The family of this 132-nucleotide RNA from Sorex araneus is "Small nucleolar RNA SNORA84". Gene Ontology terms of the family: nucleolus and RNA processing. A reference for the family is Marker et al. (2002), "Experimental RNomics: identification of 140 candidates for small non-messenger RNAs in the plant Arabidopsis thaliana", Curr Biol. The sequence is in the family's curated seed alignment. By type it is an H/ACA-box small nucleolar RNA. The base pairs follow the family's consensus structure, which was predicted with WAR.
[Rfam]
RNA sequence: GCCCUGUGGUUUCUGGAUGCUGUUGUUCAUGUACAGCUCUCCAGUGGAUAGAAGGGGCCAGAGUGAUUCUGUGAUUUAUGCAUGGGGCUGUUCUUCCUCAGCAGUCGCCAUAGCCCGGUCACUGAGACAUGG
Numbered sequence: 001g002c003c004c005u006g007u008g009g010u011u012u013c014u015g016g017a018u019g020c021u022g023u024u025g026u027u028c029a030u031g032u033a034c035a036g037c038u039c040u041c042c043a044g045u046g047g048a049u050a051g052a053a054g055g056g057g058c059c060a061g062a063g064u065g066a067u068u069c070u071g072u073g074a075u076u077u078a079u080g081c082a083u084g085g086g087g088c089u090g091u092u093c094u095u096c097c098u099c100a101g102c103a104g105u106c107g108c109c110a111u112a113g114c115c116c117g118g119u120c121a122c123u124g125a126g127a128c129a130u131g132g
Base pairs, nucleotide, nucleotide: 001058002057003056004055007050008049010047011046013044014043015042016041017040019037020036021035022034023033069124071122072121073120074119075118076117080114081113082111083110084109085108087106088104089103090102091101092100